[Rfam]
RNA sequence: GCACAGUAACUAUAUUAUUAACAAAAUUUUGCCGGCUAUAAAGUUGCAUUGACGCUAAUACUUCAUAAACAUAAACGGUUGAUAAUACCCUGAGGUAGAGGGGUUUUAGUCGGUAGGUCCGGGGACUUCUUCCUCGGGAAUCCGACACUACCCAGUGGUACGGACGGCUGGGUGUCUUCUGAAGAUUUCCCCUCUUCCACGAAA
Numbered sequence: 001g002c003a004c005a006g007u008a009a010c011u012a013u014a015u016u017a018u019u020a021a022c023a024a025a026a027u028u029u030u031g032c033c034g035g036c037u038a039u040a041a042a043g044u045u046g047c048a049u050u051g052a053c054g055c056u057a058a059u060a061c062u063u064c065a066u067a068a069a070c071a072u073a074a075a076c077g078g079u080u081g082a083u084a085a086u087a088c089c090c091u092g093a094g095g096u097a098g099a100g101g102g103g104u105u106u107u108a109g110u111c112g113g114u115a116g117g118u119c120c121g122g123g124g125a126c127u128u129c130u131u132c133c134u135c136g137g138g139a140a141u142c143c144g145a146c147a148c149u150a151c152c153c154a155g156u157g158g159u160a161c162g163g164a165c166g167g168c169u170g171g172g173u174g175u176c177u178u179c180u181g182a183a184g185a186u187u188u189c190c191c192c193u194c195u196u197c198c199a200c201g202a203a204a
Stems, first nucleotide, its partner, number of pairs: 033054002036051001062203003066199001094198002097195002100191003109146005118138008148174001150173005

R2 RNA element: a 204-nucleotide RNA sequence from Agrilus planipennis. The source organism's lineage runs through Eukaryota, Protostomia, Allotriocarida, Pterygota and Agrilus. This family represents the 3' UTR region of the R2 retrotransposable element. This family is known to interact with the R2-encoded reverse transcriptase in a reaction known as target primed reverse transcription (TPRT). Gene Ontology term of the family: regulation of reverse transcription. The family's consensus secondary structure is taken from published work. The family's RNA type in Rfam is cis-regulatory element. Rfam 15.1 lists 3,698 matches to the family in 74 species.